Rfam assigns this 172-nucleotide RNA from Megasphaera elsdenii to the family "Group II catalytic intron D1-D4-3". It is one of the family's seed sequences.
[Rfam]
RNA sequence: UCCAUCGUGAGAUGGAAUCUGAAGGAAGGUCGAGGCAAAUCUCUGGUCUGACGAACAGAAAUCACAUAAGGCUAGUCAUGGGGAUAAGGCCGCCUAACAGGUUGAAGUCCCAUAGCUACACGGAACCAUGAAUAGUAGAUGUGGCAGACACAUGGAGAGAAAGAGUGCGUUC
Numbered sequence: 001u002c003c004a005u006c007g008u009g010a011g012a013u014g015g016a017a018u019c020u021g022a023a024g025g026a027a028g029g030u031c032g033a034g035g036c037a038a039a040u041c042u043c044u045g046g047u048c049u050g051a052c053g054a055a056c057a058g059a060a061a062u063c064a065c066a067u068a069a070g071g072c073u074a075g076u077c078a079u080g081g082g083g084a085u086a087a088g089g090c091c092g093c094c095u096a097a098c099a100g101g102u103u104g105a106a107g108u109c110c111c112a113u114a115g116c117u118a119c120a121c122g123g124a125a126c127c128a129u130g131a132a133u134a135g136u137a138g139a140u141g142u143g144g145c146a147g148a149c150a151c152a153u154g155g156a157g158a159g160a161a162a163g164a165g166u167g168c169g170u171u172c
Stems, first nucleotide, its partner, number of pairs: 001016006028172002031169002036163001040158006046149005062144005071136003076131006082110004088103004